[Rfam]
RNA sequence: AAUGUAGAAAAGUGAAUAACUUAUAUAUGACUGAAAUUGGUCAGUCGUUUCUACUCAGAACCGCAAUUCUGAACUAUAAGCAUGAAAGAUCAUUCU
Numbered sequence: 001a002a003u004g005u006a007g008a009a010a011a012g013u014g015a016a017u018a019a020c021u022u023a024u025a026u027a028u029g030a031c032u033g034a035a036a037u038u039g040g041u042c043a044g045u046c047g048u049u050u051c052u053a054c055u056c057a058g059a060a061c062c063g064c065a066a067u068u069c070u071g072a073a074c075u076a077u078a079a080g081c082a083u084g085a086a087a088g089a090u091c092a093u094u095c096u
Base pairs, nucleotide, nucleotide: 020080021079022078023077024076025075029046030045031044032043033042034041055072056071057070058069059068060067
Rfam assigns this 96-nucleotide sequence from Fructilactobacillus sanfranciscensis to the family "Purine riboswitch aptamer".